Shown here is a 376-nucleotide part of an RNA from Psychrosphaera ytuae, a member of the family "Bacterial large subunit ribosomal RNA". Pairs were carried over by alignment from the consensus structure, which is taken from published work.
Nucleotides: 376
Stems, first nucleotide, its partner, number of pairs: 006024006025374004033354004039334002044068006053061002075330003080111002085106003089102001091100003115132005135326011146311002151306004159293004165286003170280005175196006197255001201250004208243003213236007221229002258271005340349002356368004
Number, partner (000 for none) and nucleotide at each position: 001000g002000a003000u004000a005000a006024u007023g008022g009021g010020g011019g012000u013000g014000a015000a016000a017000a018000a019011c020010c021009c022008c023007c024006a025374c026373g027372c028371c029000g030000a031000a032000a033354g034353a035352c036351c037000a038000a039334g040333g041000g042000u043000u044068c045067c046066u047065a048064u049063c050000c051000c052000a053061u054060g055000c056000u057000a058000a059000u060054c061053a062000g063049g064048g065047u066046a067045g068044g069000g070000u071000a072000a073000g074000u075330c076329g077328g078000c079000c080111c081110c082000u083000a084000a085106g086105g087104c088000g089102a090000g091100g092099c093098a094000g095000a096000a097000a098093u099092g100091c101000g102089u103000a104087g105086u106085c107000g108000a109000u110081g111080g112000g113000a114000a115132a116131c117130a118129g119128a120000u121000u122000a123000a124000u125000a126000u127000u128119u129118c130117u131116g132115u133000a134000c135326u136325u137324u138323u139322a140321a141320u142319c143318a144317u145316u146311g147310c148000g149000a150000u151306g152305g153304g154303g155000g156000g157000a158000c159293g160292g161291a162290g163000a164000a165286g166285g167284c168000u169000a170280g171279g172278u173277g174276a175196g176195c177194a178193c179192g180191g181000c182000g183000u184000u185000g186000g187000u188000u189000g190000u191180c192179c193178g194177u195176g196175u197255g198000a199000a200000a201250g202249u203248a204247u205000g206000u207000a208243g209242g210241u211000u212000g213236a214235c215234u216233g217232c218231u219230u220000a221229g222228g223000u224000a225000a226000a227000u228222c229221c230219g231218g232217g233216c234215g235214g236213u237000u238000a239000g240000a241210a242209c243208u244000g245000a246000g247204a248203u249202a250201c251000g252000a253000g254000a255197c256000g257000a258271c259270g260269c261268u262267c263000c264000a265000c266000g267262g268261a269260g270259c271258g272000g273000a274000a275000g276174u277173c278172a279171u280170u281000g282000a283000u284167g285166c286165c287000a288000u289000a290162c291161u292160u293159c294000c295000a296000g297000g298000a299000a300000a301000a302000g303154c304153c305152u306151c307000u308000a309000a310147g311146c312000u313000u314000c315000a316145g317144a318143u319142g320141a321140u322139u323138a324137a325136g326135a327000a328077c329076c330075g331000u332000a333040c334039c335000c336000c337000a338000a339000a340349c341348c342000g343000a344000c345000a346000c347000a348341g349340g350000u351036g352035g353034u354033c355000a356368g357367g358366u359365a360000g361000a362000g363000a364000a365359u366358a367357c368356u369000a370000a371028g372027g373026c374025g375000c376000u